[Rfam]
RNA: Metazoan signal recognition particle RNA
Organism: Ceratopteris richardii
RNA sequence: CCCGGGUCGAUGGCCUGUAAUCCGAGAAAUCGGAGGGAUACGGGUUGGGCAUUACGGAUGGGGAGAGGUUCUGUGAGCGGCGGCAGGGCCGGAGAUCACCGCCACCAUAGAAUGUUGCGCCCGUCUCCAAGCCAGGAGUGGAGGUAGGCGCCCUCUCGGAGGGGUGUUGGCGUCUGCUUUCAUUGAAGAGGGGGGGAAUGCGUGCAGGCCGGCGACGGAGCGACGAACACCUCCCGCUCUCGGCAGUGGAGGGAUAACGCAAGCCUUCCGGCGGCCUCCGAUCACCCUCCCCGCGCCUCUCAUCCACACCCCAG
Numbered sequence: 001c002c003c004g005g006g007u008c009g010a011u012g013g014c015c016u017g018u019a020a021u022c023c024g025a026g027a028a029a030u031c032g033g034a035g036g037g038a039u040a041c042g043g044g045u046u047g048g049g050c051a052u053u054a055c056g057g058a059u060g061g062g063g064a065g066a067g068g069u070u071c072u073g074u075g076a077g078c079g080g081c082g083g084c085a086g087g088g089c090c091g092g093a094g095a096u097c098a099c100c101g102c103c104a105c106c107a108u109a110g111a112a113u114g115u116u117g118c119g120c121c122c123g124u125c126u127c128c129a130a131g132c133c134a135g136g137a138g139u140g141g142a143g144g145u146a147g148g149c150g151c152c153c154u155c156u157c158g159g160a161g162g163g164g165u166g167u168u169g170g171c172g173u174c175u176g177c178u179u180u181c182a183u184u185g186a187a188g189a190g191g192g193g194g195g196g197a198a199u200g201c202g203u204g205c206a207g208g209c210c211g212g213c214g215a216c217g218g219a220g221c222g223a224c225g226a227a228c229a230c231c232u233c234c235c236g237c238u239c240u241c242g243g244c245a246g247u248g249g250a251g252g253g254a255u256a257a258c259g260c261a262a263g264c265c266u267u268c269c270g271g272c273g274g275c276c277u278c279c280g281a282u283c284a285c286c287c288u289c290c291c292c293g294c295g296c297c298u299c300u301c302a303u304c305c306a307c308a309c310c311c312c313a314g
Base pairs, nucleotide, nucleotide: 001037002036003035004016005015006014007013008012021034022033023032042312043311044310046308047307049305051303053302056300057299058298060294062292063291065289066288067287068286073285074284075283076282078280079279080278082276083275084274086272089271090270091269092268093267094266115262116261117260118259119258121253122252125251126250127249128248129247131244132243133242135240136239137238138237139236140181141180142179143178144177145176146175147174148173149172150171151170152169153166155164156163157162183187190234191233192232193231194230199227201225202224203223209218210217211216